Shown here is a 97-nucleotide sequence from Roseomonas acroporae, a member of the family "TPP riboswitch aptamer (THI element)".
[Rfam]
RNA sequence: CCGACCGGACCGGGGUGCCCGCGCGUCGCGGGCUGAGAUCAUACCCGUCGAACCUGAUCUGGGUCGCGCCAGCGAAGGGAGUCACGUCAUCUUGCCA
Numbered sequence: 001c002c003g004a005c006c007g008g009a010c011c012g013g014g015g016u017g018c019c020c021g022c023g024c025g026u027c028g029c030g031g032g033c034u035g036a037g038a039u040c041a042u043a044c045c046c047g048u049c050g051a052a053c054c055u056g057a058u059c060u061g062g063g064u065c066g067c068g069c070c071a072g073c074g075a076a077g078g079g080a081g082u083c084a085c086g087u088c089a090u091c092u093u094g095c096c097a
Base pairs, nucleotide, nucleotide: 008083009082010081011047012046013045014044016041017033018032019031020030021029053078054077055076059072060071061070062069
Taxonomically the source falls in Roseomonas (Bacteria, Pseudomonadati, Pseudomonadota, Roseomonadaceae). A search with the family's covariance model found it, with a score of 64 bits.